[Rfam]
RNA sequence: CCUCCCACGCCUCUUAACAAUGCGCACCAGGGAGGU
Numbered sequence: 001c002c003u004c005c006c007a008c009g010c011c012u013c014u015u016a017a018c019a020a021u022g023c024g025c026a027c028c029a030g031g032g033a034g035g036u
Base pairs, nucleotide, nucleotide: 001035002034003033004032005031006030008024009023010022